Annotation: Rfam assigns this 76-nucleotide sequence from Myotis brandtii to the family "mir-9223 microRNA precursor family". Pairs were carried over by alignment from the consensus structure, which was predicted with RNAalifold. Rfam 15.1 lists 14,641 matches to the family in 28 species. Taxonomically the source falls in Myotis (Eukaryota, Deuterostomia, Sarcopterygii, Eutheria). A search with the family's covariance model found it, with a score of 53 bits. Rfam links the family to the GO terms miRNA-mediated post-transcriptional gene silencing and RISC complex.

[Rfam]
Nucleotides: 076
Base pairs, nucleotide, nucleotide: 002075003074005072006071007070008069009068010067011066012065013064014063015062016061017060019058020057021056022055025052026051027050028049030047032045
Number, partner (000 for none) and nucleotide at each position: 001000a002075g003074c004000g005072g006071u007070u008069c009068u010067c011066a012065g013064g014063u015062g016061a017060u018000g019058c020057a021056c022055c023000c024000u025052g026051g027050a028049a029000c030047c031000a032045g033000a034000g035000a036000g037000g038000a039000a040000g041000g042000a043000g044000c045032c046000c047030g048000a049028u050027u051026c052025u053000g054000a055022g056021g057020u058019g059000u060017g061016u062015c063014a064013c065012c066011u067010g068009a069008g070007a071006a072005c073000c074003g075002c076000c